RNA sequence: UUAAUAUUUGAAUUCCGAGCUUUUUAUUCUAAAGGAUGCCGUGUAUCCCAUGAAUACUGAGCCUAAACCAGAGAGGUUUACGGGGUUGGGCAGGAAACAGCCCGGCCUUCACUAGUUGAGAAGGAAGUCUAUUUUUUAAGCA
Numbered sequence: 001u002u003a004a005u006a007u008u009u010g011a012a013u014u015c016c017g018a019g020c021u022u023u024u025u026a027u028u029c030u031a032a033a034g035g036a037u038g039c040c041g042u043g044u045a046u047c048c049c050a051u052g053a054a055u056a057c058u059g060a061g062c063c064u065a066a067a068c069c070a071g072a073g074a075g076g077u078u079u080a081c082g083g084g085g086u087u088g089g090g091c092a093g094g095a096a097a098c099a100g101c102c103c104g105g106c107c108u109u110c111a112c113u114a115g116u117u118g119a120g121a122a123g124g125a126a127g128u129c130u131a132u133u134u135u136u137u138a139a140g141c142a
Base pairs, nucleotide, nucleotide: 003136004135006133011128013126014125015124016123019062020061021060022059025056026055027054028053029052034048035047036046037045038044064080065079066078067077068076083108084107085106086105087104088103089102090101091100093098109119110118
RNA: Molybdenum/Tungsten riboswitch aptamer (Moco RNA motif)